[Rfam]
RNA sequence: GGGCCUAUAGCUCAGUUGGCAGAGCCUCCGGCUCAUAACCGGCAGGUCGCAGGUUCAAAUCCUGCUAGGCCCA
Numbered sequence: 001g002g003g004c005c006u007a008u009a010g011c012u013c014a015g016u017u018g019g020c021a022g023a024g025c026c027u028c029c030g031g032c033u034c035a036u037a038a039c040c041g042g043c044a045g046g047u048c049g050c051a052g053g054u055u056c057a058a059a060u061c062c063u064g065c066u067a068g069g070c071c072c073a
Stems, first nucleotide, its partner, number of pairs: 001072007010025004028042004049065005

The record is a 73-nucleotide sequence from Halodesulfovibrio spirochaetisodalis, which matches "tRNA" in Rfam. The source organism's lineage runs through Bacteria, Thermodesulfobacteriota, Desulfovibrionales, Desulfovibrionaceae and Halodesulfovibrio. Rfam classes the family as a transfer RNA.